[Rfam]
Source information:
The record is a 72-nucleotide RNA sequence from Streptomyces sp. NRRL S-1521, which matches "ASpks TB sRNA" in Rfam. It scores 56 bits against the family's covariance model. The base pairs follow the family's consensus structure, which is taken from published work.
RNA sequence: CUUCACCGAGCCCAGCCAGAGGGGGCGUUCGCGCGGCUCGUGUCCGUAGGUCGCCAGGAACGCCUCGGCCUC
Numbered sequence: 001c002u003u004c005a006c007c008g009a010g011c012c013c014a015g016c017c018a019g020a021g022g023g024g025g026c027g028u029u030c031g032c033g034c035g036g037c038u039c040g041u042g043u044c045c046g047u048a049g050g051u052c053g054c055c056a057g058g059a060a061c062g063c064c065u066c067g068g069c070c071u072c
Stems, first nucleotide, its partner, number of pairs: 016024002032067002034062002039057001041056002044053001046051001